[Rfam]
RNA sequence: GUGCAUUGCUGUUGCAUUGCACGUGUGUGAGGCGGGUGCAGUGCCUCGGCAGUGCA
Numbered sequence: 001g002u003g004c005a006u007u008g009c010u011g012u013u014g015c016a017u018u019g020c021a022c023g024u025g026u027g028u029g030a031g032g033c034g035g036g037u038g039c040a041g042u043g044c045c046u047c048g049g050c051a052g053u054g055c056a
Stems, first nucleotide, its partner, number of pairs: 002056010014044001016042007
mir-33 microRNA precursor family: a 56-nucleotide sequence from Equus caballus. The organism belongs to Equus, within Eukaryota. Rfam's curators put it in the seed alignment. The base pairs follow the family's consensus structure, which was predicted with PFOLD.